[Rfam]
RNA sequence: UGUUUCGAAGGCAGCGCACUCCUCCUCCCAGCGCUUCCUUCUUCGAUCGGCAGCACUCCUCCUCCCAGUUGCCGAUCUCUAUUAAGAGCCCGACGCAUCCUCCUCCCGCGUCGGGCUCUUUAA
Numbered sequence: 001u002g003u004u005u006c007g008a009a010g011g012c013a014g015c016g017c018a019c020u021c022c023u024c025c026u027c028c029c030a031g032c033g034c035u036u037c038c039u040u041c042u043u044c045g046a047u048c049g050g051c052a053g054c055a056c057u058c059c060u061c062c063u064c065c066c067a068g069u070u071g072c073c074g075a076u077c078u079c080u081a082u083u084a085a086g087a088g089c090c091c092g093a094c095g096c097a098u099c100c101u102c103c104u105c106c107c108g109c110g111u112c113g114g115g116c117u118c119u120u121u122a123a
Base pairs, nucleotide, nucleotide: 007041008040009039011037013035014034015033016032017031045077046076047075048074049073050072051071052070053069054068086118087117088116089115090114091113092112093111094110095109096108
Shown here is a 123-nucleotide RNA sequence from Arminella tumorigenes, a member of the family "Alphaproteobacterial ar14". NCBI's taxonomy places the organism under Bacteria, Pseudomonadati, Pseudomonadota, Hyphomicrobiales, Arminella. The literature on the family includes a 2012 paper in RNA Biol by del Val et al., "A survey of sRNA families in alpha-proteobacteria". The pairing is the family consensus, mapped onto this sequence. By type it is a small RNA. It scores 111 bits against the family's covariance model. Smr14C2 was renamed NfeR1 (Nodule Formation Efficiency RNA) highly expressed in salt stress and during the symbiotic interaction on legume roots.